This 211-nucleotide RNA from Streptomyces venezuelae belongs to the Rfam family "Streptomyces RNA 1601". It is one of the family's seed sequences. The literature on the family includes a 2011 paper in RNA Biol by Vockenhuber et al., "Deep sequencing-based identification of small non-coding RNAs in Streptomyces coelicolor". The family's RNA type in Rfam is small RNA. Identified by deep sequencing of transcriptome at the end of exponential growth phase. Appears longer on northern blot than sequencing transcript. Streptomyces specific.

RNA sequence: AACGACCGGCCGGACACGUGUGUGCCCGGCCCACAAGUGGAGGCUCCGUACUCCCACCUGACCACCCUCACGGGUGGCGGGUCACCGGUCAGGUGGCGCCCAUCGUUCCGUACGGACGAUGGAGCCGCCCGAUGUGCGCCCCGCGGUUGACCGCGGCGGUGCUCCGGUAUUUCCGUGGAGCCCCGCCUGUGUCCCGUCCGGGGCGUUUUUC
Numbered sequence: 001a002a003c004g005a006c007c008g009g010c011c012g013g014a015c016a017c018g019u020g021u022g023u024g025c026c027c028g029g030c031c032c033a034c035a036a037g038u039g040g041a042g043g044c045u046c047c048g049u050a051c052u053c054c055c056a057c058c059u060g061a062c063c064a065c066c067c068u069c070a071c072g073g074g075u076g077g078c079g080g081g082u083c084a085c086c087g088g089u090c091a092g093g094u095g096g097c098g099c100c101c102a103u104c105g106u107u108c109c110g111u112a113c114g115g116a117c118g119a120u121g122g123a124g125c126c127g128c129c130c131g132a133u134g135u136g137c138g139c140c141c142c143g144c145g146g147u148u149g150a151c152c153g154c155g156g157c158g159g160u161g162c163u164c165c166g167g168u169a170u171u172u173c174c175g176u177g178g179a180g181c182c183c184c185g186c187c188u189g190u191g192u193c194c195c196g197u198c199c200g201g202g203g204c205g206u207u208u209u210u211c
Stems, first nucleotide, its partner, number of pairs: 004090006012027002028083005034060002037057004041052002062077006092129005100122007138204006144196003153190002155187005161181005